[Rfam]
RNA sequence: UUUAUUGCUAAUGCAGCAUCAUCAAGAUUCACAUUGGAUUUUAAUGACAAAUAUAUGUGAAUCUUGAAGGUGUUGCAUUUGCAAACAA
Numbered sequence: 001u002u003u004a005u006u007g008c009u010a011a012u013g014c015a016g017c018a019u020c021a022u023c024a025a026g027a028u029u030c031a032c033a034u035u036g037g038a039u040u041u042u043a044a045u046g047a048c049a050a051a052u053a054u055a056u057g058u059g060a061a062u063c064u065u066g067a068a069g070g071u072g073u074u075g076c077a078u079u080u081g082c083a084a085a086c087a088a
Stems, first nucleotide, its partner, number of pairs: 010079011022067009032057002
RNA: mir-172 microRNA precursor family
Organism: Nicotiana attenuata